[Rfam]
RNA sequence: GCAACGAAGUGAAAAAGCACAUAUAAUAAUACGAUGUUUGCCUGAAAGGCAAACUCGAAGAUAAACAGCGAGGCAGAAUUCCUGCCGAACUGUUUAUCGUAU
Numbered sequence: 001g002c003a004a005c006g007a008a009g010u011g012a013a014a015a016a017g018c019a020c021a022u023a024u025a026a027u028a029a030u031a032c033g034a035u036g037u038u039u040g041c042c043u044g045a046a047a048g049g050c051a052a053a054c055u056c057g058a059a060g061a062u063a064a065a066c067a068g069c070g071a072g073g074c075a076g077a078a079u080u081c082c083u084g085c086c087g088a089a090c091u092g093u094u095u096a097u098c099g100u101a102u
Stems, first nucleotide, its partner, number of pairs: 001018002032057003036054008060098009072086005

Rfam assigns this 102-nucleotide RNA sequence from Treponema denticola to the family "TD-2 RNA". Rfam classes the family as a small RNA. Its Rfam clan is "TD (Treponema denticola) motifs". It is one of the family's seed sequences. Lineage of the source: Bacteria > Spirochaetota > Spirochaetia > Treponema > Treponema denticola. On this family, see Weinberg et al., Nucleic Acids Res 2007: "Identification of 22 candidate structured RNAs in bacteria using the CMfinder comparative genomics pipeline".